[Rfam]
RNA sequence: AGAGGGAAGGAUGGGCCAUAGCAGAAACAUUCACAUUGCGACCCCUGUCAGAUAUCUGGUAAUACUGGCAAAUUCUGCU
Number, nucleotide and partner (000 for none) at each position: 001a000002g000003a000004g000005g000006g000007a000008a000009g000010g000011a000012u000013g044014g043015g042016c000017c040018a000019u000020a079021g078022c077023a076024g075025a074026a073027a000028c038029a037030u000031u000032c000033a000034c000035a000036u000037u029038g028039c000040g017041a000042c015043c014044c013045c000046u000047g000048u000049c067050a066051g065052a000053u064054a063055u062056c000057u000058g000059g000060u000061a000062a055063u054064a053065c051066u050067g049068g000069c000070a000071a000072a000073u026074u025075c024076u023077g022078c021079u020
This 79-nucleotide RNA sequence from Alligator mississippiensis belongs to the Rfam family "Mammalian CPEB3 ribozyme". Pairs were carried over by alignment from the consensus structure, which is taken from published work. It scores 47 bits against the family's covariance model.